[Rfam]
The family of this 391-nucleotide RNA sequence from Brevibacillus fulvus is "Bacterial RNase P class B". The match comes from Rfam's covariance-model search (276 bits). The literature on the family includes a 1998 paper in Annu Rev Biochem by Frank and Pace, "Ribonuclease P: unity and diversity in a tRNA processing ribozyme".
RNA sequence: AAACGAAGAGAAUCGCAGGGACGACGAUGUCCUUGAGGAAAGUCCACGCUCGCCCAAGCUGAGAUGCUUGGAGUUUGGAGGCUAGGGCUAACAACCCUAGGGAGCUGUACAUCAGCUUACGUCAGGGAAAGGGGCUACGUCCGUUUGCGGAUAUGUCCCGAAUACCUUGAAAGUGCCACAGUGACGAAGUUUCCAUGGAAACGUGGAAAGUGGAACGAGGUAAACACCCUCUGCGAGAAACCCAAAUGUUGGUCGGGGAACAACUCCUAAGGAAACGAGAACAGAGGAGUUGCACAUCUUGGGCAAACAAGAUGUGAGAUAGAUGAUUCUCCUUCAUUGUGCGAGGAUGGCUUCCGUUGCCAGCACGACGAAGAACAAAACGUGGCUUACG
Number, nucleotide and partner (000 for none) at each position: 001a000002a000003a000004c000005g000006a000007a000008g331009a330010g329011a328012a327013u326014c325015g000016c035017a034018g033019g032020g031021a030022c000023g000024a000025c000026g000027a000028u000029g000030u021031c020032c019033u018034u017035g016036a000037g000038g000039a000040a388041a387042g386043u000044c385045c384046a383047c382048g381049c237050u236051c235052g234053c233054c071055c070056a069057a068058g067059c066060u000061g000062a000063g000064a000065u000066g059067c058068u057069u056070g055071g054072a000073g000074u000075u000076u000077g232078g231079a230080g229081g228082c100083u099084a098085g097086g096087g095088c000089u000090a000091a000092c000093a000094a000095c087096c086097c085098u084099a083100g082101g120102g118103a117104g116105c115106u114107g113108u000109a000110c000111a000112u000113c107114a106115g105116c104117u103118u102119a000120c101121g227122u226123c000124a167125g166126g165127g000128a000129a000130a000131g000132g158133g157134g156135c155136u000137a000138c000139g152140u151141c150142c149143g148144u000145u000146u000147g000148c143149g142150g141151a140152u139153a000154u000155g135156u134157c133158c132159c000160g000161a000162a000163u000164a000165c126166c125167u124168u000169g000170a000171a000172a000173g225174u224175g221176c220177c219178a000179c000180a000181g000182u000183g000184a000185c000186g000187a000188a000189g000190u209191u208192u207193c206194c205195a204196u203197g202198g000199a000200a000201a000202c197203g196204u195205g194206g193207a192208a191209a190210g000211u000212g000213g000214a000215a000216c000217g000218a000219g177220g176221u175222a000223a000224a174225c173226a122227c121228c081229c080230u079231c078232u077233g053234c052235g051236a050237g049238a000239a000240a000241c257242c256243c255244a000245a000246a000247u000248g000249u000250u000251g000252g000253u000254c000255g243256g242257g241258g000259a000260a000261c292262a291263a290264c289265u288266c287267c286268u000269a000270a000271g000272g000273a000274a000275a000276c000277g000278a000279g000280a000281a000282c000283a000284g000285a000286g267287g266288a265289g264290u263291u262292g261293c316294a315295c314296a313297u312298c311299u310300u309301g308302g000303g000304c000305a000306a000307a000308c301309a300310a299311g298312a297313u296314g295315u294316g293317a000318g000319a000320u000321a000322g000323a000324u000325g014326a013327u012328u011329c010330u009331c008332c000333u372334u371335c370336a000337u368338u367339g366340u365341g364342c000343g000344a000345g000346g000347a000348u000349g000350g000351c000352u000353u000354c000355c000356g000357u000358u000359g000360c000361c000362a000363g000364c341365a340366c339367g338368a337369c000370g335371a334372a333373g000374a000375a000376c000377a000378a000379a000380a000381c048382g047383u046384g045385g044386c042387u041388u040389a000390c000391g000

Rfam classes the family as a ribozyme.
Gene Ontology terms of the family: ribonuclease P activity, dimeric ribonuclease P complex and tRNA processing.